[Rfam]
RNA: bantam microRNA precursor family
Organism: Trichuris suis
RNA sequence: UAGGCAUUGUAGAAGCGGUUUUCGCUUUGAUCUUUGACAGCUUUUGUGAUCUGAGAUCAUUGUGAAAGCCGUUUCUACAAU
Numbered sequence: 001u002a003g004g005c006a007u008u009g010u011a012g013a014a015g016c017g018g019u020u021u022u023c024g025c026u027u028u029g030a031u032c033u034u035u036g037a038c039a040g041c042u043u044u045u046g047u048g049a050u051c052u053g054a055g056a057u058c059a060u061u062g063u064g065a066a067a068g069c070c071g072u073u074u075c076u077a078c079a080a081u
Base pairs, nucleotide, nucleotide: 009078010077011076012075013074014073016071017070018069019068020067021066022065023064024063025062028059029058030057031056032055033054